[Rfam]
Rfam assigns this 93-nucleotide sequence from Lactobacillus apis to the family "Lacto-usp RNA". It is annotated as a small RNA.
RNA sequence: GGUCAAACAUAAGACAUGCGAGAUUGUAAAUAACUUUUGAAUCGGAAUACUAUUAUUUAGUUAAUAGGAUCCAUAUUCAUUGCGAUACGUCUC
Dot-bracket structure: ....................((((.(((.........(((((.(((...((((((......))))))..)))..)))))......))))))).
Numbered sequence: 001g002g003u004c005a006a007a008c009a010u011a012a013g014a015c016a017u018g019c020g021a022g023a024u025u026g027u028a029a030a031u032a033a034c035u036u037u038u039g040a041a042u043c044g045g046a047a048u049a050c051u052a053u054u055a056u057u058u059a060g061u062u063a064a065u066a067g068g069a070u071c072c073a074u075a076u077u078c079a080u081u082g083c084g085a086u087a088c089g090u091c092u093c
Stems, first nucleotide, its partner, number of pairs: 021092004026088003038079005044072003050067006